RNA: Small nucleolar RNA SNORA51
RNA sequence: AGCCUCUUGGUGCUUACCACAGGCUGUGUUCUUACAAGACCAUAUAGAAAGAGGAGAAAAAGUACACUUACCCCAUUUACACUUCAGCCCAGGCCCUAUGCCUGGUCUGUACUAUGAAUGGGGAGACAGGG
Number, nucleotide and partner (000 for none) at each position: 001a000002g000003c000004c056005u055006c054007u053008u052009g000010g000011u000012g000013c000014u000015u000016a000017c000018c000019a000020c000021a000022g040023g000024c000025u000026g000027u036028g035029u034030u000031c000032u000033u000034a029035c028036a027037a000038g000039a000040c022041c000042a000043u000044a000045u000046a000047g000048a000049a000050a000051g000052a008053g007054g006055a005056g004057a000058a000059a000060a000061a000062g000063u000064a000065c000066a000067c000068u000069u000070a000071c123072c122073c121074c120075a119076u118077u000078u000079a000080c000081a000082c000083u000084u000085c109086a108087g107088c000089c105090c104091a103092g102093g101094c100095c000096c000097u000098a000099u000100g094101c093102c092103u091104g090105g089106u000107c087108u086109g085110u000111a000112c000113u000114a000115u000116g000117a000118a076119u075120g074121g073122g072123g071124a000125g000126a000127c000128a000129g000130g000131g000